[Rfam]
RNA sequence: CGAAAGGGCUUCUGUCGUGAGUGGCACCCAUAGAGCAGCCUGAUUGCUCUACAUGCAGCAUCAACAUCGAGAGAUUCAGAAGCAUCAAUUUUUGGUACCUGGGCAGCUGGAGAUCAUUGGUCCUGGUGCCCGC
Numbered sequence: 001c002g003a004a005a006g007g008g009c010u011u012c013u014g015u016c017g018u019g020a021g022u023g024g025c026a027c028c029c030a031u032a033g034a035g036c037a038g039c040c041u042g043a044u045u046g047c048u049c050u051a052c053a054u055g056c057a058g059c060a061u062c063a064a065c066a067u068c069g070a071g072a073g074a075u076u077c078a079g080a081a082g083c084a085u086c087a088a089u090u091u092u093u094g095g096u097a098c099c100u101g102g103g104c105a106g107c108u109g110g111a112g113a114u115c116a117u118u119g120g121u122c123c124u125g126g127u128g129c130c131c132g133c
Stems, first nucleotide, its partner, number of pairs: 008083005013026005027055001031051008058076001060075003101131004106127005112122004

Record summary
The family of this 133-nucleotide RNA from Cnephaeus nilssonii is "U11 spliceosomal RNA". The base pairs follow the family's consensus structure, which is taken from published work. By type it is a spliceosomal small nuclear RNA. The family has 72 seed sequences and 2,595 matches in Rfam 15.1.